[Rfam]
RNA sequence: GCACGGUGAUGAAAAACUGGUUCCUUACAUUCGCAGUUUCCACGGUAGGAGUACGCCAACGAACCCAUCGUAUAGUGCUCACGUUGACCGCUCAUUCUUGAGACCUUCCUAGGAUGUCUGAGUGC
Dot-bracket structure: ((((............................................((((((....................)))))).........................................))))

Rfam assigns this 125-nucleotide sequence from Lachancea dasiensis to the family "Small nucleolar RNA SNORD14". It scores 66 bits against the family's covariance model. Rfam 15.1 lists 4,559 matches to the family in 936 species. Rfam describes the family as follows. U14 small nucleolar RNA (U14 snoRNA) is required for early cleavages of eukaryotic precursor rRNAs. In yeasts, this molecule possess a stem-loop region (known as the Y-domain) which is essential for function. A similar structure, but with a different consensus sequence, is found in plants, but is absent in vertebrates. The family's consensus secondary structure was predicted with PFOLD.